The family of this 100-nucleotide RNA sequence from Desulfocicer vacuolatum is "Pyrrolysine insertion sequence mttB". The match comes from Rfam's covariance-model search (94 bits). Rfam classes the family as a cis-regulatory element. The literature on the family includes a 2013 paper in BMC Bioinformatics by Theil Have et al., "Effects of using coding potential, sequence conservation and mRNA structure conservation for predicting pyrroly-sine containing genes". The family's consensus secondary structure was predicted with CMfinder.
[Rfam]
RNA sequence: UAGGCUGACUCCAAAGUACCCGAUGGACAGGCAGCCCAUGAGAAAACAUUAACAGGUCUCCUCACAGCGUUGGCAGGUGCCAAUCUGAUUUAUGGCCUGG
Numbered sequence: 001u002a003g004g005c006u007g008a009c010u011c012c013a014a015a016g017u018a019c020c021c022g023a024u025g026g027a028c029a030g031g032c033a034g035c036c037c038a039u040g041a042g043a044a045a046a047c048a049u050u051a052a053c054a055g056g057u058c059u060c061c062u063c064a065c066a067g068c069g070u071u072g073g074c075a076g077g078u079g080c081c082a083a084u085c086u087g088a089u090u091u092a093u094g095g096c097c098u099g100g
Stems, first nucleotide, its partner, number of pairs: 003012001025032001033062002077098001079096002